[Rfam]
RNA: L17-Actino-Proteobacteria ribosomal protein leader
RNA sequence: CCCGGGGCCGCCCGGCCCCGGGGCAAGCUGACGUCGGUACCUGAUACGGCCGGCGCAG
Number, nucleotide and partner (000 for none) at each position: 001c022002c021003c020004g019005g018006g017007g016008c015009c014010g000011c000012c000013c000014g009015g008016c007017c006018c005019c004020g003021g002022g001023g000024c000025a000026a000027g000028c058029u057030g056031a000032c055033g054034u053035c052036g051037g050038u049039a000040c000041c000042u000043g000044a000045u000046a000047c000048g000049g038050c037051c036052g035053g034054c033055g032056c030057a029058g028